Rfam assigns this 387-nucleotide RNA from Aeromonas salmonicida to the family "Bacterial RNase P class A". NCBI's taxonomy places the organism under Bacteria, Gammaproteobacteria, Aeromonas, Aeromonas salmonicida, Aeromonas salmonicida subsp. salmonicida. The family's RNA type in Rfam is ribozyme. The base pairs follow the family's consensus structure, which is taken from published work.

RNA sequence: GGAGUCGGCUGGGCAAUCGCUGCUUCGUCGUUGUGUCCCUCGGGACAGACGGGCGGAGGGGAGGAAAGUCCGGGCUUCAUAGGGCAGGGUGCCAGGUAACGCCUGGGGGGCGUGAGCCCACGACCAGUGCAACAGAGAGCAAACCGCCGAUGGCCCGCAAGGGAUCAGGUAAGGGUGAAAGGGUGCGGUAAGAGCGCACCGCGCGUCUGGUAACAGUUCGUGGCACGGUAAACUCCACCCGAAGCAAGACCAAAUAGGCCCCUAUUGGCGCGGCCCGCGUUGGGGGCGGGUAGGUUGCUUGAGCCAGCGAGCGAUUGCUGGCCUAGAGGAAUGAUUGCUACCCGGGGCAACCCGGUACAGAACCCGGCUUACAGGCCGACUCCGACC
Numbered sequence: 001g002g003a004g005u006c007g008g009c010u011g012g013g014c015a016a017u018c019g020c021u022g023c024u025u026c027g028u029c030g031u032u033g034u035g036u037c038c039c040u041c042g043g044g045a046c047a048g049a050c051g052g053g054c055g056g057a058g059g060g061g062a063g064g065a066a067a068g069u070c071c072g073g074g075c076u077u078c079a080u081a082g083g084g085c086a087g088g089g090u091g092c093c094a095g096g097u098a099a100c101g102c103c104u105g106g107g108g109g110g111c112g113u114g115a116g117c118c119c120a121c122g123a124c125c126a127g128u129g130c131a132a133c134a135g136a137g138a139g140c141a142a143a144c145c146g147c148c149g150a151u152g153g154c155c156c157g158c159a160a161g162g163g164a165u166c167a168g169g170u171a172a173g174g175g176u177g178a179a180a181g182g183g184u185g186c187g188g189u190a191a192g193a194g195c196g197c198a199c200c201g202c203g204c205g206u207c208u209g210g211u212a213a214c215a216g217u218u219c220g221u222g223g224c225a226c227g228g229u230a231a232a233c234u235c236c237a238c239c240c241g242a243a244g245c246a247a248g249a250c251c252a253a254a255u256a257g258g259c260c261c262c263u264a265u266u267g268g269c270g271c272g273g274c275c276c277g278c279g280u281u282g283g284g285g286g287c288g289g290g291u292a293g294g295u296u297g298c299u300u301g302a303g304c305c306a307g308c309g310a311g312c313g314a315u316u317g318c319u320g321g322c323c324u325a326g327a328g329g330a331a332u333g334a335u336u337g338c339u340a341c342c343c344g345g346g347g348c349a350a351c352c353c354g355g356u357a358c359a360g361a362a363c364c365c366g367g368c369u370u371a372c373a374g375g376c377c378g379a380c381u382c383c384g385a386c387c
Stems, first nucleotide, its partner, number of pairs: 001383010011372001012339007020061002023058006066370003070367005075244004082276004087240005092106005107121001108119004122235002127233002129229002144174002146170003151167003154163003182200006201224001202222004207216003248296004258287006267281005303322008